[Rfam]
About this RNA
A member of the RNA family "Small nucleolar RNA SNORD67" from Gopherus evgoodei, 111 nucleotides long. Rfam links the family to the GO terms nucleolus and RNA processing. It scores 113 bits against the family's covariance model.

RNA sequence: UGCGAGAGUGAUGAGUUGCACACUGGUGGUGUUGCCAUGUCAGGUGAUGUGGGCACCACUCAGAAUCUCCCUGAUGACAAAGCCAAGUGCACAGGGGCCAUCUGACUCGCU
Numbered sequence: 001u002g003c004g005a006g007a008g009u010g011a012u013g014a015g016u017u018g019c020a021c022a023c024u025g026g027u028g029g030u031g032u033u034g035c036c037a038u039g040u041c042a043g044g045u046g047a048u049g050u051g052g053g054c055a056c057c058a059c060u061c062a063g064a065a066u067c068u069c070c071c072u073g074a075u076g077a078c079a080a081a082g083c084c085a086a087g088u089g090c091a092c093a094g095g096g097g098c099c100a101u102c103u104g105a106c107u108c109g110c111u
Stems, first nucleotide, its partner, number of pairs: 004110001006108003023063003026059004031054003037050005
On this family, see Huttenhofer et al., EMBO J 2001: "RNomics: an experimental approach that identifies 201 candidates for novel, small, non-messenger RNAs in mouse".
It is annotated as a C/D-box small nucleolar RNA.
The source organism's lineage runs through Eukaryota, Teleostomi, Dipnotetrapodomorpha, Cryptodira and Gopherus.